[Rfam]
A member of the RNA family "SAM-I/IV (S-adenosyl methionine) riboswitch aptamer" from Labrenzia sp. THAF82, 125 nucleotides long. Taxonomically the source falls in Labrenzia (Bacteria, Pseudomonadati, Alphaproteobacteria, Hyphomicrobiales). On this family, see Weinberg et al., RNA 2008: "The aptamer core of SAM-IV riboswitches mimics the ligand-binding site of SAM-I riboswitches".
RNA sequence: CGUUAUCAUCAAGAGAAGGGCUGGCGCCCUCGCCAACCUGCCGAACCGGGCAAGGUGGUCCCCGCAAUAGGGAUGCGGCUGGAAAGACCCUCACAUCGGGUUAACCGGCAACCAAGCGGUUCAAU
Numbered sequence: 001c002g003u004u005a006u007c008a009u010c011a012a013g014a015g016a017a018g019g020g021c022u023g024g025c026g027c028c029c030u031c032g033c034c035a036a037c038c039u040g041c042c043g044a045a046c047c048g049g050g051c052a053a054g055g056u057g058g059u060c061c062c063c064g065c066a067a068u069a070g071g072g073a074u075g076c077g078g079c080u081g082g083a084a085a086g087a088c089c090c091u092c093a094c095a096u097c098g099g100g101u102u103a104a105c106c107g108g109c110a111a112c113c114a115a116g117c118g119g120u121u122c123a124a125u
Stems, first nucleotide, its partner, number of pairs: 007075004015031001017030005032059003037055003040051003044121005078109004